[Rfam]
RNA sequence: UAACCAAGGAAACGAACAUCUCAUAUAUCCUUAACAAUCUGGUUGAGGGUCUCUAGUAGGAGCCUAACAAUCCUAGCUAUGAGUAUGGGCGCGCGUGCU
Numbered sequence: 001u002a003a004c005c006a007a008g009g010a011a012a013c014g015a016a017c018a019u020c021u022c023a024u025a026u027a028u029c030c031u032u033a034a035c036a037a038u039c040u041g042g043u044u045g046a047g048g049g050u051c052u053c054u055a056g057u058a059g060g061a062g063c064c065u066a067a068c069a070a071u072c073c074u075a076g077c078u079a080u081g082a083g084u085a086u087g088g089g090c091g092c093g094c095g096u097g098c099u
Stems, first nucleotide, its partner, number of pairs: 020083006029048006057075005

Purine riboswitch aptamer: a 99-nucleotide RNA sequence from Paenibacillaceae bacterium GAS479. From the family's description: Riboswitches are metabolite binding domains within certain messenger RNAs that serve as precision sensors for their corresponding targets. Allosteric rearrangement of mRNA structure is mediated by ligand binding, and this results in modulation of gene expression. A class of riboswitches that selectively recognises guanine and becomes saturated at concentrations as low as 5 nM. In Bacillus subtilis, this mRNA motif is located on at least five separate transcriptional units that together encode 17 genes that are mostly involved in purine transport and purine nucleotide biosynthesis. It has also been shown that some members of this family are specific for adenine instead. Hence this family are termed purine riboswitches. The source organism's lineage runs through Bacteria, Bacillota, Bacilli, Caryophanales and Paenibacillaceae.